[Rfam]
RNA: Lysine riboswitch aptamer
Organism: Aliidiomarina sanyensis
Nucleotides: 179
Base pairs, nucleotide, nucleotide: 006174007173008172009171010170011169016081017080018079019078020077021076022075024073030066031065032064033063034062035061085114086113087112088111089110090109091108092107093106094105095104115141116140117139118138120136121135123134124133125132143164144163145162146161147160148159
Number, partner (000 for none) and nucleotide at each position: 001000a002000g003000c004000a005000c006174c007173a008172g009171a010170a011169g012000a013000g014000g015000a016081g017080c018079g019078u020077u021076a022075c023000c024073c025000a026000g027000g028000u029000a030066g031065a032064g033063c034062a035061c036000u037000g038000g039000a040000a041000g042000g043000c044000a045000c046000c047000a048000u049000g050000g051000c052000c053000u054000g055000u056000u057000g058000a059000a060000c061035g062034u063033g064032u065031u066030u067000g068000a069000g070000g071000g072000g073024g074000a075022g076021u077020a078019a079018c080017g081016c082000c083000g084000a085114g086113g087112u088111u089110a090109a091108u092107c093106a094105u095104g096000g097000c098000a099000u100000g101000g102000g103000g104095c105094g106093u107092g108091g109090u110089u111088g112087a113086u114085c115141g116140g117139u118138c119000g120136a121135c122000c123134g124133g125132g126000u127000u128000g129000a130000a131000u132125c133124c134123c135121g136120u137000a138118g139117g140116c141115u142000g143164u144163c145162a146161c147160c148159u149000a150000u151000u152000c153000a154000u155000u156000c157000u158000c159148a160147g161146g162145u163144g164143g165000a166000g167000a168000g169011c170010u171009u172008c173007u174006g175000g176000a177000g178000c179000g